[Rfam]
RNA sequence: GUAAAUGAUGAACUUGUUUAUCCAUUCUCUGAGUGCUGCUGGGCCUUGGCCCUGUAGCCCACUGGGCCUGUUCUGGGCCCAGAGGGUUCAGUUGCUUGGCUCCAUGCUGGUGCUCUAGUGUUCUACUGGGGUAACUGCGUUGGGGACAGGUGUGCUGGUACAUGGGCCAAGGUCCUGGCCACAACUAGGACGAUCAUAAACUCCUGAUCAC
Numbered sequence: 001g002u003a004a005a006u007g008a009u010g011a012a013c014u015u016g017u018u019u020a021u022c023c024a025u026u027c028u029c030u031g032a033g034u035g036c037u038g039c040u041g042g043g044c045c046u047u048g049g050c051c052c053u054g055u056a057g058c059c060c061a062c063u064g065g066g067c068c069u070g071u072u073c074u075g076g077g078c079c080c081a082g083a084g085g086g087u088u089c090a091g092u093u094g095c096u097u098g099g100c101u102c103c104a105u106g107c108u109g110g111u112g113c114u115c116u117a118g119u120g121u122u123c124u125a126c127u128g129g130g131g132u133a134a135c136u137g138c139g140u141u142g143g144g145g146a147c148a149g150g151u152g153u154g155c156u157g158g159u160a161c162a163u164g165g166g167c168c169a170a171g172g173u174c175c176u177g178g179c180c181a182c183a184a185c186u187a188g189g190a191c192g193a194u195c196a197u198a199a200a201c202u203c204c205u206g207a208u209c210a211c
Stems, first nucleotide, its partner, number of pairs: 009210003013206001016203001019200001024194001026193002029189002033185002038179003041175012054161002057087004062082008088158005101145002103142001106138002110136001112132009
Rfam assigns this 211-nucleotide RNA from Esox lucius to the family "Small nucleolar RNA SNORD17". From the family's description: The snoRNA HBI-43 belongs to the C/D family of snoRNAs, guiding 2'O-ribose methylation at position U3797 of the 28S rRNA. Pseudouridylation in position U3797 is predicted to be guided by the H/ACA snoRNA ACA48. Rfam classes the family as a C/D-box small nucleolar RNA. Gene Ontology terms of the family: RNA processing and nucleolus. A reference for the family is Huttenhofer et al. (2001), "RNomics: an experimental approach that identifies 201 candidates for novel, small, non-messenger RNAs in mouse", EMBO J. It scores 59 bits against the family's covariance model.